[Rfam]
RNA sequence: UGUCGACGCGCGGGAGAGCGUGGGCCGCAAGGCCCGCCACCGAAGGAGCAACCGCCCCGGAAUCUCUCAGGUCAACGGACCGCGCGGCGAUC
Numbered sequence: 001u002g003u004c005g006a007c008g009c010g011c012g013g014g015a016g017a018g019c020g021u022g023g024g025c026c027g028c029a030a031g032g033c034c035c036g037c038c039a040c041c042g043a044a045g046g047a048g049c050a051a052c053c054g055c056c057c058c059g060g061a062a063u064c065u066c067u068c069a070g071g072u073c074a075a076c077g078g079a080c081c082g083c084g085c086g087g088c089g090a091u092c
Stems, first nucleotide, its partner, number of pairs: 007086007020037004039072003042068002046066003052060002
Annotation: The record is a 92-nucleotide RNA from Hankyongella ginsenosidimutans, which matches "Glycine riboswitch aptamer" in Rfam. Taxonomically the source falls in Hankyongella (Bacteria, Pseudomonadati, Pseudomonadota, Alphaproteobacteria). Rfam's curators write: This family represents the bacterial glycine riboswitch.